[Rfam]
RNA sequence: GCCGGGACAGUCCCGGGCGCAGCGGAGGUGGAGGAACCACUCGGGAACCCGUCCGCGGGGACCCUGGGGUGAAGCGCUCGAGCCGUCCAGUUCGGCGAGCGCCGGGCACCUGACUCGCCCGAACCCGUCAGCUAACUUCACAGGCGUCGGUCAGGAAAGGU
Numbered sequence: 001g002c003c004g005g006g007a008c009a010g011u012c013c014c015g016g017g018c019g020c021a022g023c024g025g026a027g028g029u030g031g032a033g034g035a036a037c038c039a040c041u042c043g044g045g046a047a048c049c050c051g052u053c054c055g056c057g058g059g060g061a062c063c064c065u066g067g068g069g070u071g072a073a074g075c076g077c078u079c080g081a082g083c084c085g086u087c088c089a090g091u092u093c094g095g096c097g098a099g100c101g102c103c104g105g106g107c108a109c110c111u112g113a114c115u116c117g118c119c120c121g122a123a124c125c126c127g128u129c130a131g132c133u134a135a136c137u138u139c140a141c142a143g144g145c146g147u148c149g150g151u152c153a154g155g156a157a158a159g160g161u
Base pairs, nucleotide, nucleotide: 001145002144003143008025028141029140030139031138032137033136038066039065067126068125069124075101076100077099078098079097080096104120105119106118107117
Overview:
The record is a 161-nucleotide RNA from Friedmanniella luteola, which matches "c-di-AMP riboswitch aptamer (ydaO/yuaA leader)" in Rfam. The source organism's lineage runs through Bacteria, Bacillati, Actinomycetes, Propionibacteriales and Friedmanniella. Its family is annotated with cyclic-di-AMP binding and regulation of gene expression in the Gene Ontology. The match comes from Rfam's covariance-model search (54 bits).